[Rfam]
RNA sequence: GGAGUGUUGAGAGGAUUUGCCCCUAGUACGAGAGGACCGGGGUGAACGUACCUCUGGUGGACCUGUUGUGGCGCCAGCCGCAGUGCAGGGUAGCUAUGUACGGAAGGGAUAACCGCUGAAUGCAUCUAAGCGGGAAACCCGCCUCAAAACGAGCGCUCCCUUAUGAGCCGUGGAAGACGACCACGUCGAUAGGCCGGGUGUGGAAGCGCAGCAAUGCGUGCAGCUUACCGGUACUAAUAGCUCAUCAG
Numbered sequence: 001g002g003a004g005u006g007u008u009g010a011g012a013g014g015a016u017u018u019g020c021c022c023c024u025a026g027u028a029c030g031a032g033a034g035g036a037c038c039g040g041g042g043u044g045a046a047c048g049u050a051c052c053u054c055u056g057g058u059g060g061a062c063c064u065g066u067u068g069u070g071g072c073g074c075c076a077g078c079c080g081c082a083g084u085g086c087a088g089g090g091u092a093g094c095u096a097u098g099u100a101c102g103g104a105a106g107g108g109a110u111a112a113c114c115g116c117u118g119a120a121u122g123c124a125u126c127u128a129a130g131c132g133g134g135a136a137a138c139c140c141g142c143c144u145c146a147a148a149a150c151g152a153g154c155g156c157u158c159c160c161u162u163a164u165g166a167g168c169c170g171u172g173g174a175a176g177a178c179g180a181c182c183a184c185g186u187c188g189a190u191a192g193g194c195c196g197g198g199u200g201u202g203g204a205a206g207c208g209c210a211g212c213a214a215u216g217c218g219u220g221c222a223g224c225u226u227a228c229c230g231g232u233a234c235u236a237a238u239a240g241c242u243c244a245u246c247a248g
Stems, first nucleotide, its partner, number of pairs: 001159008011145004017045007047102005055096003062089005067082006106140003113133005165243004169185005190236003193232005198226001200224001206219005